[Rfam]
Record summary
This 255-nucleotide RNA sequence from Clostridium sp. chh4-2 belongs to the Rfam family "T-box leader". It is annotated as a cis-regulatory leader. From the family's description: Uncharged tRNA acts as the effector for transcription antitermination of genes in the T-box leader family.

RNA sequence: AAAAAACCGAUGAGCAAGAGUAAGUAAGAUUAUUAUGUUGUGCACAGAGAGCUUUCGUAUGGUGGAAGGAAGCGGCAAUGUUUAAUCCGAAUGGACUUGCGAGGGCGGCUUGAAACCGGAUUAUCCGGGAGUAGGUGCUGACGGGAUUCCUGUCCGUUAUCAGAGGGAGACAUAUGUUAGUAUGUUACAGAGUGGGCGUAUUUUCUUGUACGUCAAUUUGGGUGGUACCGCAGAAGUAAAGCUUUUGUCCCUGUU
Number, nucleotide and partner (000 for none) at each position: 001a000002a000003a000004a000005a000006a000007c104008c103009g000010a000011u000012g000013a000014g000015c099016a098017a097018g096019a000020g000021u000022a000023a000024g000025u000026a000027a000028g087029a086030u085031u084032a083033u000034u000035a000036u000037g000038u000039u000040g076041u075042g000043c000044a000045c000046a000047g000048a000049g000050a000051g073052c072053u071054u070055u069056c068057g000058u000059a000060u000061g000062g000063u000064g000065g000066a000067a000068g056069g055070a054071a053072g052073c051074g000075g041076c040077a000078a000079u000080g000081u000082u000083u032084a031085a030086u029087c028088c000089g000090a000091a000092u000093g000094g000095a000096c018097u017098u016099g015100c000101g000102a000103g008104g007105g000106c140107g139108g138109c137110u000111u135112g000113a000114a000115a000116c000117c000118g000119g000120a000121u000122u000123a000124u000125c000126c000127g000128g000129g000130a000131g000132u000133a000134g000135g111136u000137g109138c108139u107140g106141a000142c156143g155144g154145g000146a000147u000148u000149c000150c000151u000152g000153u000154c144155c143156g142157u000158u000159a000160u000161c000162a000163g000164a000165g000166g000167g000168a000169g000170a000171c000172a000173u000174a000175u000176g000177u000178u000179a000180g000181u000182a000183u000184g000185u000186u000187a000188c000189a000190g000191a000192g000193u000194g000195g214196g213197c212198g211199u210200a209201u208202u000203u000204u000205c000206u000207u000208g201209u200210a199211c198212g197213u196214c195215a000216a000217u000218u000219u000220g251221g250222g249223u000224g000225g000226u000227a000228c000229c000230g248231c247232a246233g245234a244235a243236g242237u000238a000239a000240a000241g000242c236243u235244u234245u233246u232247g231248u230249c222250c221251c220252u000253g000254u000255u000